Shown here is a 188-nucleotide sequence from Sorghum bicolor, a member of the family "MIR1435 microRNA precursor family". A search with the family's covariance model found it, with a score of 97 bits. Pairs were carried over by alignment from the consensus structure, which was predicted with RNAalifold.

RNA sequence: UAGUUUUGUCCUAAGUCAAACAUCUCUCGUUUUGAAAACAUAUAUCAACAUCUACAAGUUCAAAUAAAUGCACCGUCAAGUCAUAUUUCACGGAUAAUUUAAUAAUACUAAUCCGAUGCUAUAGAUGUUGAUGCAUUUUUCUGUAAACUUGGUCAAAACUAGAGAGAUUUGACUUAGGGCAAAACUAA
Numbered sequence: 001u002a003g004u005u006u007u008g009u010c011c012u013a014a015g016u017c018a019a020a021c022a023u024c025u026c027u028c029g030u031u032u033u034g035a036a037a038a039c040a041u042a043u044a045u046c047a048a049c050a051u052c053u054a055c056a057a058g059u060u061c062a063a064a065u066a067a068a069u070g071c072a073c074c075g076u077c078a079a080g081u082c083a084u085a086u087u088u089c090a091c092g093g094a095u096a097a098u099u100u101a102a103u104a105a106u107a108c109u110a111a112u113c114c115g116a117u118g119c120u121a122u123a124g125a126u127g128u129u130g131a132u133g134c135a136u137u138u139u140u141c142u143g144u145a146a147a148c149u150u151g152g153u154c155a156a157a158a159c160u161a162g163a164g165a166g167a168u169u170u171g172a173c174u175u176a177g178g179g180c181a182a183a184a185c186u187a188a
Stems, first nucleotide, its partner, number of pairs: 005183005011177010023165004031157005039143002042140001043133003047129008056120001060116002064112002